The record is a 113-nucleotide sequence from Desulfoscipio gibsoniae, which matches "pan motif" in Rfam. Rfam classes the family as a cis-regulatory element.
RNA sequence: UGGGCGGUAUCUGAUUAGAACCGCACCACUUGUUUGGGUUGGUUGGGUAGGUGAUGCGUUUUGGAUUAAGCUAACAUACCUCCGCUUGGAGCCGGUAGGACCGAGACGGGUUU
Numbered sequence: 001u002g003g004g005c006g007g008u009a010u011c012u013g014a015u016u017a018g019a020a021c022c023g024c025a026c027c028a029c030u031u032g033u034u035u036g037g038g039u040u041g042g043u044u045g046g047g048u049a050g051g052u053g054a055u056g057c058g059u060u061u062u063g064g065a066u067u068a069a070g071c072u073a074a075c076a077u078a079c080c081u082c083c084g085c086u087u088g089g090a091g092c093c094g095g096u097a098g099g100a101c102c103g104a105g106a107c108g109g110g111u112u113u
Base pairs, nucleotide, nucleotide: 001028002027003026004024005023006022007021008020010019011018082109083108084107085105086104087103088102089101092099093098

The organism belongs to Desulfoscipio gibsoniae, within Bacteria.